A member of the RNA family "L31-Coriobacteria ribosomal protein leader" from Thermophilibacter immobilis, 34 nucleotides long.
RNA sequence: GCCCUGGUCGGAAACCAGGGCCGAUGCAGAGGAG
Numbered sequence: 001g002c003c004c005u006g007g008u009c010g011g012a013a014a015c016c017a018g019g020g021c022c023g024a025u026g027c028a029g030a031g032g033a034g
Stems, first nucleotide, its partner, number of pairs: 001021008

A search with the family's covariance model found it, with a score of 44 bits. Its Rfam clan is "Ribosomal Protein L31 Leader clan".